The family of this 56-nucleotide RNA from Rhodoferax sp. OV413 is "nhaA-I RNA". Rfam describes the family as follows. Acidobacteria, Alphaproteobacteria, Betaproteobacteria and Gammaproteobacteria, Verrucomicrobia, cand. division NC10. By type it is a riboswitch. A search with the family's covariance model found it, with a score of 49 bits. Taxonomically the source falls in Rhodoferax (Bacteria, Pseudomonadota, Betaproteobacteria, Comamonadaceae).

RNA sequence: GGGUGCCCAGAGAAUGCUCUCUAUGUGGCAGGUUUAGCGAAGGUCGGGCCGCCUCG
Dot-bracket structure: ....(((((.(((......))).)).)))........(((.(((......))))))